Description: Rfam assigns this 355-nucleotide part of an RNA from Tepidanaerobacter syntrophicus to the family "Bacterial small subunit ribosomal RNA". The source organism's lineage runs through Bacteria, Bacillati, Bacillota, Clostridia and Tepidanaerobacter. The family's consensus secondary structure is taken from published work. Rfam links the family to the GO terms structural constituent of ribosome and ribosome.

RNA sequence: GGUGUAAAGGGCGUGUAGGCGGGGAUGCAAGUUACCGGUAAAAACCCGUGGCUCAACCACGGGCUUGCCGAUAAAACUGCAUCUCUUGAGUGUAGGAGAGGGAAGUGGAAUUCCCGGAGUAGCGGUGAAAUGCGUAGAUACCGGGAGGAACACCAGUGGCGAAGGCGGCUUCCUGGCCUAUCACUGACGCUGAGGCGCGAAAGCUAGGGGAGCGAACGGGAUUAGAUACCCCGGUAGUCCUAGCCGUAAACGAUGGUCACUAGGUGUGGGUGGUGGUCAAGCCAUCCGUGCCGGAGCUAACGCAAUAAGUGACCCACCUGGGGAGUACGGCCGCAAGGUUGAAACUCAAAGGAAU
Numbered sequence: 001g002g003u004g005u006a007a008a009g010g011g012c013g014u015g016u017a018g019g020c021g022g023g024g025a026u027g028c029a030a031g032u033u034a035c036c037g038g039u040a041a042a043a044a045c046c047c048g049u050g051g052c053u054c055a056a057c058c059a060c061g062g063g064c065u066u067g068c069c070g071a072u073a074a075a076a077c078u079g080c081a082u083c084u085c086u087u088g089a090g091u092g093u094a095g096g097a098g099a100g101g102g103a104a105g106u107g108g109a110a111u112u113c114c115c116g117g118a119g120u121a122g123c124g125g126u127g128a129a130a131u132g133c134g135u136a137g138a139u140a141c142c143g144g145g146a147g148g149a150a151c152a153c154c155a156g157u158g159g160c161g162a163a164g165g166c167g168g169c170u171u172c173c174u175g176g177c178c179u180a181u182c183a184c185u186g187a188c189g190c191u192g193a194g195g196c197g198c199g200a201a202a203g204c205u206a207g208g209g210g211a212g213c214g215a216a217c218g219g220g221a222u223u224a225g226a227u228a229c230c231c232c233g234g235u236a237g238u239c240c241u242a243g244c245c246g247u248a249a250a251c252g253a254u255g256g257u258c259a260c261u262a263g264g265u266g267u268g269g270g271u272g273g274u275g276g277u278c279a280a281g282c283c284a285u286c287c288g289u290g291c292c293g294g295a296g297c298u299a300a301c302g303c304a305a306u307a308a309g310u311g312a313c314c315c316a317c318c319u320g321g322g323g324a325g326u327a328c329g330g331c332c333g334c335a336a337g338g339u340u341g342a343a344a345c346u347c348a349a350a351g352g353a354a355u
Stems, first nucleotide, its partner, number of pairs: 001318003009315001011198004016192001018191003022085007030078002032074003036070005045063007089185003092181005100174007107151001111147007122133003159166002203244006212238002217233004255314006263292012296303002320347003329340004